A member of the RNA family "U5 spliceosomal RNA" from Daucus carota, 116 nucleotides long. It scores 83 bits against the family's covariance model. It is annotated as a spliceosomal small nuclear RNA. Rfam's curators write: U5 RNA is a component of both types of known spliceosome.

[Rfam]
RNA sequence: AGCCAUGUAGUGAGCACAAAGCGAACUAUUCUUUCGCCUUUUACUAAAGAAUACCGUGUGCUUGCUACUUAAAGUGGCAUACGACCAUUUUUGGAGGGAAGUUCCACUGGAAUCAA
Numbered sequence: 001a002g003c004c005a006u007g008u009a010g011u012g013a014g015c016a017c018a019a020a021g022c023g024a025a026c027u028a029u030u031c032u033u034u035c036g037c038c039u040u041u042u043a044c045u046a047a048a049g050a051a052u053a054c055c056g057u058g059u060g061c062u063u064g065c066u067a068c069u070u071a072a073a074g075u076g077g078c079a080u081a082c083g084a085c086c087a088u089u090u091u092u093g094g095a096g097g098g099a100a101g102u103u104c105c106a107c108u109g110g111a112a113u114c115a116a
Base pairs, nucleotide, nucleotide: 003077004076005075006074008067009066010065011064012063013062014061015060016059017058018057027053028052029051030050031049032048033047034046101113102112103111